RNA sequence: AAAAAGGGCUUCUGCCGUGCGUGGCACGGGGGGGCUGUGUGCCACCCUCGCGGAAUCGACAUCAAGAGAUUUCGGAAGCACAAUUUUUGUGACGGAGGGCUGCUGGUAACCGUCUGUUCCGGCACCCCA
Numbered sequence: 001a002a003a004a005a006g007g008g009c010u011u012c013u014g015c016c017g018u019g020c021g022u023g024g025c026a027c028g029g030g031g032g033g034g035c036u037g038u039g040u041g042c043c044a045c046c047c048u049c050g051c052g053g054a055a056u057c058g059a060c061a062u063c064a065a066g067a068g069a070u071u072u073c074g075g076a077a078g079c080a081c082a083a084u085u086u087u088u089g090u091g092a093c094g095g096a097g098g099g100c101u102g103c104u105g106g107u108a109a110c111c112g113u114c115u116g117u118u119c120c121g122g123c124a125c126c127c128c129a
Base pairs, nucleotide, nucleotide: 008079009078010077011076012075013026014025015024016023017022027050028049029048030047031046032045034042035041051074052073053072054071055070056069057068097127098126099125102123103122104121105120106119108118109117110116

U11 spliceosomal RNA: a 129-nucleotide RNA from Cinclus mexicanus. It is annotated as a spliceosomal small nuclear RNA. Taxonomically the source falls in Cinclus (Eukaryota, Gnathostomata, Theropoda, Telluraves). Pairs were carried over by alignment from the consensus structure, which is taken from published work.